[Rfam]
RNA sequence: AAAACCUUUUAAAUGAAGUCCAGAGAGGCUUGAAAGGGUUGCGGAGAGAGAAGUGCAAAAAAGCGCAUUCUCUGAUUCACUGUACCCCAAGCCGUUAUGGCCUGGGGUUUUUUUACG
Numbered sequence: 001a002a003a004a005c006c007u008u009u010u011a012a013a014u015g016a017a018g019u020c021c022a023g024a025g026a027g028g029c030u031u032g033a034a035a036g037g038g039u040u041g042c043g044g045a046g047a048g049a050g051a052a053g054u055g056c057a058a059a060a061a062a063g064c065g066c067a068u069u070c071u072c073u074g075a076u077u078c079a080c081u082g083u084a085c086c087c088c089a090a091g092c093c094g095u096u097a098u099g100g101c102c103u104g105g106g107g108u109u110u111u112u113u114u115a116c117g
Stems, first nucleotide, its partner, number of pairs: 003039001005037005016031005044077002048073001050071001052069005082110001084108006091101003
A member of the RNA family "PyrR binding site" from Bacillus licheniformis, 117 nucleotides long. Rfam 15.1 lists 1,498 matches to the family in 930 species. Rfam describes the family as follows. This family represents the PyrR binding site and terminator structure. This RNA structure is found upstream of a variety of genes involved in pyrimidine biosynthesis and transport. The organism belongs to Bacillus licheniformis, within Bacteria.